[Rfam]
RNA: Archaeal signal recognition particle RNA
RNA sequence: GAGCGGACUAGGUCGGGCGGUUAGGCCCCGCCCGUUACCCGUGAGGUAGUCUUCAGCGGGGACCGAACGCCGGGGGAGUCCGGUCGGACCGACUCGGGCCCCGGGAGCCAACGUGGAAACCUCGUCCGACGGGGACAGCGGUUCGCGGCGUCCGCUCGCAGGAGCGGUCCGUCGUGGUUCGUCGGUGGUACCGGGUCAGGCGCGGAAGCGAGCAGCCCACCGCCGGACGUGCGUCGCUCGUCGGAUCGCGGGGUGGAGGAGGCAACCGGGAUUCCCCGUGUCGGAACGCCGGGCGAAUCCGGUCGUCCACCA
Numbered sequence: 001g002a003g004c005g006g007a008c009u010a011g012g013u014c015g016g017g018c019g020g021u022u023a024g025g026c027c028c029c030g031c032c033c034g035u036u037a038c039c040c041g042u043g044a045g046g047u048a049g050u051c052u053u054c055a056g057c058g059g060g061g062a063c064c065g066a067a068c069g070c071c072g073g074g075g076g077a078g079u080c081c082g083g084u085c086g087g088a089c090c091g092a093c094u095c096g097g098g099c100c101c102c103g104g105g106a107g108c109c110a111a112c113g114u115g116g117a118a119a120c121c122u123c124g125u126c127c128g129a130c131g132g133g134g135a136c137a138g139c140g141g142u143u144c145g146c147g148g149c150g151u152c153c154g155c156u157c158g159c160a161g162g163a164g165c166g167g168u169c170c171g172u173c174g175u176g177g178u179u180c181g182u183c184g185g186u187g188g189u190a191c192c193g194g195g196u197c198a199g200g201c202g203c204g205g206a207a208g209c210g211a212g213c214a215g216c217c218c219a220c221c222g223c224c225g226g227a228c229g230u231g232c233g234u235c236g237c238u239c240g241u242c243g244g245a246u247c248g249c250g251g252g253g254u255g256g257a258g259g260a261g262g263c264a265a266c267c268g269g270g271a272u273u274c275c276c277c278g279u280g281u282c283g284g285a286a287c288g289c290c291g292g293g294c295g296a297a298u299c300c301g302g303u304c305g306u307c308c309a310c311c312a
Base pairs, nucleotide, nucleotide: 003310005308006307007306008305011064012063013062014061015033016032017031018030019029020028038060039059040058041057042056069303070302071301072300073299074298078294079293080292081291082289089284090283091282092281093280095278096277097276098275100270101269102268103267104266107263108262109261112258114256119254120253121252122251123250124249125248126244127243128242129241130240131239132238133237134235135234136233138230139229140228141179143177144176145175146174147173148172149171150170152167153166154165155164156163157162182226183225184224185223186222187221188220193218194217195216196215201210202209203208
Dot-bracket structure: ..(.((((..((((((((((.......))))))....(((((.............)))))))))....((((((...(((((......(((((.((((.(((((..(((..(.(....((((((((((((((((((.((((.((((((((.((((((....))))))..)))))))).)..(((((((....((((....(((....)))....)))).))))))).)))..))).))))))))...))))))).).)..)))..)))))....)))).)))))....).))))...)))))).)))).)..